[Rfam]
The record is a 115-nucleotide sequence from Herminiimonas sp., which matches "Guanidine-I riboswitch aptamer" in Rfam. Lineage of the source: Bacteria > Pseudomonadati > Betaproteobacteria > Oxalobacteraceae > Herminiimonas.

RNA sequence: ACUCAGGAUUGCUAGGGUUCCGACUCGGCCAAGGGUGGCACGAGUGUCUGGUCCGAGAGCGAUCCGGCCAAGUCGACAUGACGGGGCUCCACGGAGGGAUAAAAGCCCGGGAGAA
Numbered sequence: 001a002c003u004c005a006g007g008a009u010u011g012c013u014a015g016g017g018u019u020c021c022g023a024c025u026c027g028g029c030c031a032a033g034g035g036u037g038g039c040a041c042g043a044g045u046g047u048c049u050g051g052u053c054c055g056a057g058a059g060c061g062a063u064c065c066g067g068c069c070a071a072g073u074c075g076a077c078a079u080g081a082c083g084g085g086g087c088u089c090c091a092c093g094g095a096g097g098g099a100u101a102a103a104a105g106c107c108c109g110g111g112a113g114a115a
Stems, first nucleotide, its partner, number of pairs: 007064006015054002020051002022048001023045005066088004072082002090110001092113001096108003